[Rfam]
RNA: Small nucleolar RNA SNORA70
RNA sequence: GGGCAGCUAAUUAAGCCGACCGUGCUCUCUGCCCUGUGGGGCCCGGUGUGCAAUGGCUGCCGACAGCAAGCGGCUCCCUGGGUAGUGUACGCAGCCUGUGGCUUGUACAGGCUGUGAGAAGGGACCCGGGAGACAGUC
Numbered sequence: 001g002g003g004c005a006g007c008u009a010a011u012u013a014a015g016c017c018g019a020c021c022g023u024g025c026u027c028u029c030u031g032c033c034c035u036g037u038g039g040g041g042c043c044c045g046g047u048g049u050g051c052a053a054u055g056g057c058u059g060c061c062g063a064c065a066g067c068a069a070g071c072g073g074c075u076c077c078c079u080g081g082g083u084a085g086u087g088u089a090c091g092c093a094g095c096c097u098g099u100g101g102c103u104u105g106u107a108c109a110g111g112c113u114g115u116g117a118g119a120a121g122g123g124a125c126c127c128g129g130g131a132g133a134c135a136g137u138c
Stems, first nucleotide, its partner, number of pairs: 003051003019047004025041004081126003092114006